[Rfam]
RNA: Bacterial RNase P class A
Organism: Sulfurihydrogenibium azorense
RNA sequence: ACGGCUUUGAGGUGGUUCGCGCCGGCUGUAAACCAGUCGGUGAGGAAAGUCCGGACUCCACAGGGCAGGAAGCUGCCGAAAAGGCAGGUGGGGGUAACCUCACAGAUAGGGCCACAGAAAAUAGACCGCCAAUCCGCACACCUUUUGGGUGUGGUCAUGGAGGCAAGGGUGAAAAAGUGGGGUAAGAGCCCACUACCUACGGUGGUGACAUCGUAGGUUGGCAACCCUCUUCCGGAGCAAUCCCAAGUAGGAAGGCGUUAUCAGGUUUGCCCGACCGAUGCCUUCGGGUAGGGAGCUAAGAUAAAUGACCACUAAAACAGAAUCCGGCUUACUCCAAAGCCGUAGCC
Dot-bracket structure: (((((((((.([[[[.[[.(((((((((.....)))))))))....(((.(((((((((...[[[[.((((((((((.....)))))(.((((....)))).)((...(((((............(((((..((((.....................)))))))..)).......((((((.......))))))..((((((((....))))))))...)))..)))))))))))))...((((......((((((.......((((.]]]]))))...)))))).....))))............]]]]]]..........)))))))).)..)))))))))....